[Rfam]
RNA: Small nucleolar RNA snoR99
RNA sequence: UUGCUUAAAGGGAUGAAUGAGGUCCCUGAUAUCUAUGCUUCCGUCCUUUUCACUUUGUCAGCUUUGGGCUUUUAUCCUUUCCCGUUGCUGAUCAUUCAUGGAUGGUAAACGC
Numbered sequence: 001u002u003g004c005u006u007a008a009a010g011g012g013a014u015g016a017a018u019g020a021g022g023u024c025c026c027u028g029a030u031a032u033c034u035a036u037g038c039u040u041c042c043g044u045c046c047u048u049u050u051c052a053c054u055u056u057g058u059c060a061g062c063u064u065u066g067g068g069c070u071u072u073u074a075u076c077c078u079u080u081c082c083c084g085u086u087g088c089u090g091a092u093c094a095u096u097c098a099u100g101g102a103u104g105g106u107a108a109a110c111g112c
Base pairs, nucleotide, nucleotide: 041105042104043103044102045101057092058091059090060089061088062087